[Rfam]
RNA sequence: UGCACCCGGCAAAUCGGAACUACCAGCUCCUUCCGAAUCCCCCAGGUCCUGACGGAAGCAAGGGUAGGUGGUUGAUGCGGUGAGAUUCUCGGUUUGCCUUUU
Numbered sequence: 001u002g003c004a005c006c007c008g009g010c011a012a013a014u015c016g017g018a019a020c021u022a023c024c025a026g027c028u029c030c031u032u033c034c035g036a037a038u039c040c041c042c043c044a045g046g047u048c049c050u051g052a053c054g055g056a057a058g059c060a061a062g063g064g065u066a067g068g069u070g071g072u073u074g075a076u077g078c079g080g081u082g083a084g085a086u087u088c089u090c091g092g093u094u095u096g097c098c099u100u101u102u
Stems, first nucleotide, its partner, number of pairs: 008098008017088003020084002022081002
The record is a 102-nucleotide RNA from Dyadobacter sp. Leaf189, which matches "Bacteroidales small SRP" in Rfam. The family's consensus secondary structure is taken from published work.